Shown here is a 135-nucleotide sequence from Felis catus, a member of the family "Small nucleolar RNA SNORA48". Rfam describes the family as follows. The snoRNA ACA 48 has been identified to guide pseudouridylation of the residue U3797 in the 28S rRNA subunit.
Nucleotides: 135
Stems, first nucleotide, its partner, number of pairs: 002062005008056001011054004018047003022041006075130006090123003096119003100115003104111002
Number, partner (000 for none) and nucleotide at each position: 001000g002062g003061u004060c005059c006058c007000u008056g009000a010000c011054c012053u013052g014051g015000g016000u017000g018047g019046a020045g021000u022041g023040g024039c025038a026037c027036c028000u029000g030000g031000u032000c033000a034000g035000u036027g037026g038025u039024g040023c041022c042000a043000g044000c045020c046019u047018c048000a049000u050000a051014u052013c053012a054011g055000u056008c057000u058006g059005g060004g061003g062002c063000a064000a065000a066000g067000c068000a069000a070000u071000u072000c073000c074000u075130u076129g077128u078127u079126u080125a081000u082000c083000c084000c085000a086000g087000c088000u089000u090123g091122g092121c093000u094000u095000u096119u097118g098117g099000u100115u101114u102113g103000u104111g105110c106000c107000g108000g109000u110105g111104c112000c113102u114101g115100g116000u117098u118097c119096a120000u121092g122091c123090c124000c125080u126079g127078g128077a129076c130075a131000c132000a133000u134000g135000g
The sequence is in the family's curated seed alignment.
It is annotated as an H/ACA-box small nucleolar RNA.
Rfam links the family to the GO terms RNA processing and nucleolus.
Its Rfam clan is "SNORA48 clan".